[Rfam]
RNA sequence: GCCGCACCCGGCCGAAGGUUCUCUCACCGGCCGAAAUAUUUUUAACUGGUCGGUGGGACUUUCGUCCGUUUGUGUC
Numbered sequence: 001g002c003c004g005c006a007c008c009c010g011g012c013c014g015a016a017g018g019u020u021c022u023c024u025c026a027c028c029g030g031c032c033g034a035a036a037u038a039u040u041u042u043u044a045a046c047u048g049g050u051c052g053g054u055g056g057g058a059c060u061u062u063c064g065u066c067c068g069u070u071u072g073u074g075u076c
Stems, first nucleotide, its partner, number of pairs: 003074004009068003013064003017060005025055002028052005